[Rfam]
RNA sequence: CUGCACGCUCCCGGGCUUCUCUGAAUCACUAAUGUUGAAGAAGCCCCAAAUGCCUGUGCUAAAUCGACCGUCGUCAAGUGUUGCAGGUCUUGUCGAACUUUAUUCACGGCUGAUCUGUGUCAAAUCGACGCCGACAAUU
Numbered sequence: 001c002u003g004c005a006c007g008c009u010c011c012c013g014g015g016c017u018u019c020u021c022u023g024a025a026u027c028a029c030u031a032a033u034g035u036u037g038a039a040g041a042a043g044c045c046c047c048a049a050a051u052g053c054c055u056g057u058g059c060u061a062a063a064u065c066g067a068c069c070g071u072c073g074u075c076a077a078g079u080g081u082u083g084c085a086g087g088u089c090u091u092g093u094c095g096a097a098c099u100u101u102a103u104u105c106a107c108g109g110c111u112g113a114u115c116u117g118u119g120u121c122a123a124a125u126c127g128a129c130g131c132c133g134a135c136a137a138u139u
Base pairs, nucleotide, nucleotide: 003053004052013046014045015044016043017042018041019040020038021037070132072130073129074128075127079122080121082119083118084117085116086115087114092110093109094108
The record is a 139-nucleotide RNA sequence from Genlisea aurea, which matches "small nucleolar RNA snoR134" in Rfam. The organism belongs to Genlisea, within Eukaryota. By type it is an H/ACA-box small nucleolar RNA. A reference for the family is Chen and Wu (2009), "Mining small RNA sequencing data: a new approach to identify small nucleolar RNAs in Arabidopsis", Nucleic Acids Res.